RNA: Small nucleolar RNA Z221/R21b
Organism: Apium graveolens
RNA sequence: GGGCAGUGAUGAUGAAAGUCAUGCACCACUCUGAAUUAUCAGUGAGGAUAAACAUUUCAUUUACCCAUAUUUUUUGGAUCUGAGCCC
Numbered sequence: 001g002g003g004c005a006g007u008g009a010u011g012a013u014g015a016a017a018g019u020c021a022u023g024c025a026c027c028a029c030u031c032u033g034a035a036u037u038a039u040c041a042g043u044g045a046g047g048a049u050a051a052a053c054a055u056u057u058c059a060u061u062u063a064c065c066c067a068u069a070u071u072u073u074u075u076g077g078a079u080c081u082g083a084g085c086c087c
Stems, first nucleotide, its partner, number of pairs: 001087004
Dot-bracket structure: ((((...............................................................................))))